[Rfam]
RNA sequence: AAAAAAUAUUGGCAAACUUAUUGAAAAAUAAGGACGCAAAGCCAUGGAUCUAAAGGAUGUAAUAUUCUACGAUUGCCAGGUUGCUAUU
Numbered sequence: 001a002a003a004a005a006a007u008a009u010u011g012g013c014a015a016a017c018u019u020a021u022u023g024a025a026a027a028a029u030a031a032g033g034a035c036g037c038a039a040a041g042c043c044a045u046g047g048a049u050c051u052a053a054a055g056g057a058u059g060u061a062a063u064a065u066u067c068u069a070c071g072a073u074u075g076c077c078a079g080g081u082u083g084c085u086a087u088u
Stems, first nucleotide, its partner, number of pairs: 012037002017032006040082004045078003048073003055067004
The record is an 88-nucleotide sequence from Sporomusa malonica, which matches "c-di-GMP-I riboswitch aptamer" in Rfam.
Rfam describes the family as follows. GEMM was predicted in a large-scale screen for bacterial structured RNA regulatory elements.
Rfam links the family to the GO term cyclic-di-GMP binding.